[Rfam]
RNA sequence: AUAAAAGAGGCAGGGAGUUCAAAUCUUUGCCAAUCGCGGUCAAGUCUUGGGAGGAUCAGAUCUUAGGCGCGCUCGUACGCAGCCCCGGUAACGGUUGAAGAUCACGCGAAACUUUGAACAAGGCGUUUUCGCCUUGUUUUUUUUU
Numbered sequence: 001a002u003a004a005a006a007g008a009g010g011c012a013g014g015g016a017g018u019u020c021a022a023a024u025c026u027u028u029g030c031c032a033a034u035c036g037c038g039g040u041c042a043a044g045u046c047u048u049g050g051g052a053g054g055a056u057c058a059g060a061u062c063u064u065a066g067g068c069g070c071g072c073u074c075g076u077a078c079g080c081a082g083c084c085c086c087g088g089u090a091a092c093g094g095u096u097g098a099a100g101a102u103c104a105c106g107c108g109a110a111a112c113u114u115u116g117a118a119c120a121a122g123g124c125g126u127u128u129u130c131g132c133c134u135u136g137u138u139u140u141u142u143u144u145u
Stems, first nucleotide, its partner, number of pairs: 003145004011029006035108004044056004059103005066084003069080003085094003117138008
The family of this 145-nucleotide RNA sequence from Rhizobium sp. Root149 is "Alphaproteobacterial sRNA ar9". The pairing is the family consensus, mapped onto this sequence. NCBI's taxonomy places the organism under Bacteria, Pseudomonadati, Pseudomonadota, Alphaproteobacteria, Rhizobium.